[Rfam]
RNA sequence: UUCCGAUAAUAGCAAACCCGGUGAAAGCCGGGGACGCAAAGCCUACAGAUCUAAGGUGAGAAAUCACGAUGAUGGCUGGGUUGCCGAA
Numbered sequence: 001u002u003c004c005g006a007u008a009a010u011a012g013c014a015a016a017c018c019c020g021g022u023g024a025a026a027g028c029c030g031g032g033g034a035c036g037c038a039a040a041g042c043c044u045a046c047a048g049a050u051c052u053a054a055g056g057u058g059a060g061a062a063a064u065c066a067c068g069a070u071g072a073u074g075g076c077u078g079g080g081u082u083g084c085c086g087a088a
Stems, first nucleotide, its partner, number of pairs: 012037002017032006040082004046078003049073003056067004
Dot-bracket structure: ...........((...((((((....))))))...))..((((..((((((....((((....))))...)))..)))))))......
RNA: c-di-GMP-I riboswitch aptamer